The record is a 249-nucleotide part of an RNA from Haloquadratum walsbyi, which matches "Archaeal large subunit ribosomal RNA" in Rfam. Its Rfam clan is "LSU clan". The family's consensus secondary structure is taken from published work. Rfam's curators put it in the seed alignment.

RNA sequence: GGUACUUGCGAGGAACGCUCGUAUAGUACGAGAGGAACUACGAGUGGGUGCCACUGGUGUAUCGGUUGUCCGACAGGGCAGUUGCCGAGCAGCCACGCACCACAGGGUAAGAGCUGAAUGCAUCUAAGCUCGAAACCUCCCUCAAAAAGAAGUACCACGAAGGAUCCUUCUAGAAGAGAAGGUAGAUAGACUCGGGGUGUACGCAUCGAGGCAACGAGAUGUUGAGCCCGCGAGCACUAACCAUCCAAG
Numbered sequence: 001g002g003u004a005c006u007u008g009c010g011a012g013g014a015a016c017g018c019u020c021g022u023a024u025a026g027u028a029c030g031a032g033a034g035g036a037a038c039u040a041c042g043a044g045u046g047g048g049u050g051c052c053a054c055u056g057g058u059g060u061a062u063c064g065g066u067u068g069u070c071c072g073a074c075a076g077g078g079c080a081g082u083u084g085c086c087g088a089g090c091a092g093c094c095a096c097g098c099a100c101c102a103c104a105g106g107g108u109a110a111g112a113g114c115u116g117a118a119u120g121c122a123u124c125u126a127a128g129c130u131c132g133a134a135a136c137c138u139c140c141c142u143c144a145a146a147a148a149g150a151a152g153u154a155c156c157a158c159g160a161a162g163g164a165u166c167c168u169u170c171u172a173g174a175a176g177a178g179a180a181g182g183u184a185g186a187u188a189g190a191c192u193c194g195g196g197g198u199g200u201a202c203g204c205a206u207c208g209a210g211g212c213a214a215c216g217a218g219a220u221g222u223u224g225a226g227c228c229c230g231c232g233a234g235c236a237c238u239a240a241c242c243a244u245c246c247a248a249g
Stems, first nucleotide, its partner, number of pairs: 001156007010143004016046008047101005055095003062088005067080005104138003111131005162246004166182005187239003191234004195229003203222005210215001